Rfam assigns this 76-nucleotide sequence from Ophiophagus hannah to the family "mir-1 microRNA precursor family". The family's consensus secondary structure was predicted with RNAalifold. Taxonomically the source falls in Ophiophagus (Eukaryota, Vertebrata, Sarcopterygii, Bifurcata). Rfam links the family to the GO terms miRNA-mediated post-transcriptional gene silencing and RISC complex. Rfam's curators write: This family represents the microRNA (miRNA) mir-1 family. miRNAs are transcribed as ~70nt precursors (modelled here) and subsequently processed by the Dicer enzyme to give a ~22nt product. In this case the mature sequence comes from the 3' arm of the precursor.
[Rfam]
RNA sequence: UUUGAGACAACACACUUCUUUAUAAUCCCAUAUGAAUUACAUUACUAUGGAAUGUAAGGAAGUGUGUGGUUUCAGA
Numbered sequence: 001u002u003u004g005a006g007a008c009a010a011c012a013c014a015c016u017u018c019u020u021u022a023u024a025a026u027c028c029c030a031u032a033u034g035a036a037u038u039a040c041a042u043u044a045c046u047a048u049g050g051a052a053u054g055u056a057a058g059g060a061a062g063u064g065u066g067u068g069g070u071u072u073c074a075g076a
Stems, first nucleotide, its partner, number of pairs: 007070002010067015028050005